[Rfam]
RNA sequence: UAAUUGCCAUAACUCCGAGCUCUUUUCGCUAAGUUGCACAGGUUGUAUCUCAAUCUAAGACAAUACGCUAUCAGAGCCAGUGACCAUAGAGUCACAAGGGCAUCGUUGGAAAUGACGACGCCUCCCGUGUUUGGAAAGGUGUUCCGUGGCGCAACAA
Numbered sequence: 001u002a003a004u005u006g007c008c009a010u011a012a013c014u015c016c017g018a019g020c021u022c023u024u025u026u027c028g029c030u031a032a033g034u035u036g037c038a039c040a041g042g043u044u045g046u047a048u049c050u051c052a053a054u055c056u057a058a059g060a061c062a063a064u065a066c067g068c069u070a071u072c073a074g075a076g077c078c079a080g081u082g083a084c085c086a087u088a089g090a091g092u093c094a095c096a097a098g099g100g101c102a103u104c105g106u107u108g109g110a111a112a113u114g115a116c117g118a119c120g121c122c123u124c125c126c127g128u129g130u131u132u133g134g135a136a137a138g139g140u141g142u143u144c145c146g147u148g149g150c151g152c153a154a155c156a157a
Stems, first nucleotide, its partner, number of pairs: 011143003015139002019077005026070001028068002033064004080095005098123004103118006124134002